The family of this 169-nucleotide sequence from Oikopleura dioica is "mir-31 microRNA precursor family". A reference for the family is Chiang et al. (2010), "Mammalian microRNAs: experimental evaluation of novel and previously annotated genes", Genes Dev. It scores 51 bits against the family's covariance model. Rfam 15.1 lists 1,181 matches to the family in 783 species. The source organism's lineage runs through Eukaryota, Opisthokonta, Eumetazoa, Chordata and Oikopleura.
[Rfam]
RNA sequence: AGUCCAUCAUCAGGCUAAAUAUCGGUACAGCUGAUCCGAAUAAAAAGUACAAGUACAUCUUAUCAUUUUGAUCUAAUUUUUCUCGCCAGUCGUGCGUUUACACUGCUCAAGGUAACUUGUACUUUUUAUUCGGAUCAGCUGUACCGAUAUUUAGCCUGAUGAUGGACUU
Numbered sequence: 001a002g003u004c005c006a007u008c009a010u011c012a013g014g015c016u017a018a019a020u021a022u023c024g025g026u027a028c029a030g031c032u033g034a035u036c037c038g039a040a041u042a043a044a045a046a047g048u049a050c051a052a053g054u055a056c057a058u059c060u061u062a063u064c065a066u067u068u069u070g071a072u073c074u075a076a077u078u079u080u081u082c083u084c085g086c087c088a089g090u091c092g093u094g095c096g097u098u099u100a101c102a103c104u105g106c107u108c109a110a111g112g113u114a115a116c117u118u119g120u121a122c123u124u125u126u127u128a129u130u131c132g133g134a135u136c137a138g139c140u141g142u143a144c145c146g147a148u149a150u151u152u153a154g155c156c157u158g159a160u161g162a163u164g165g166a167c168u169u
Stems, first nucleotide, its partner, number of pairs: 005164017023146032